About this RNA
c-di-AMP riboswitch aptamer (ydaO/yuaA leader): a 135-nucleotide sequence from Ruminiclostridium cellobioparum. The organism belongs to Ruminiclostridium cellobioparum subsp. termitidis, within Bacteria. About the family: This family represents a conserved RNA structure found upstream of the ydaO and yuaA genes in Bacillus subtilis and related genes in other bacteria. The match comes from Rfam's covariance-model search (94 bits).
RNA sequence: AACAAAAAUUUGCUGAAUCCUCAAUAUUGAGGUACGGAGGAACCAGGAAACAGGGGGUUAAUCCAUUUAUAUGGUAGGGUGAUCCUAUUACCCGAACCCGACAGCUAACUUCGGAAGCACACUAUAGGAGGACUA
Dot-bracket structure: ..........((((....((((......))))..(((((....(.........)(((.....((((....))))..((((.........))))...))).........)))))..))))................